[Rfam]
RNA: c-di-GMP-I riboswitch aptamer
RNA sequence: UCCUGAUAAAGGCAAAGCACUCGAAAGAAUGUGACGCAAAGCUACAGGGGCUAACGUGGGUUUCACCAGGCCAGCCAGCUGCCGCA
Numbered sequence: 001u002c003c004u005g006a007u008a009a010a011g012g013c014a015a016a017g018c019a020c021u022c023g024a025a026a027g028a029a030u031g032u033g034a035c036g037c038a039a040a041g042c043u044a045c046a047g048g049g050g051c052u053a054a055c056g057u058g059g060g061u062u063u064c065a066c067c068a069g070g071c072c073a074g075c076c077a078g079c080u081g082c083c084g085c086a
Base pairs, nucleotide, nucleotide: 012037013036017032018031019030021028022027040080041079042078043077047076048075049072050071051070056066057065058064059063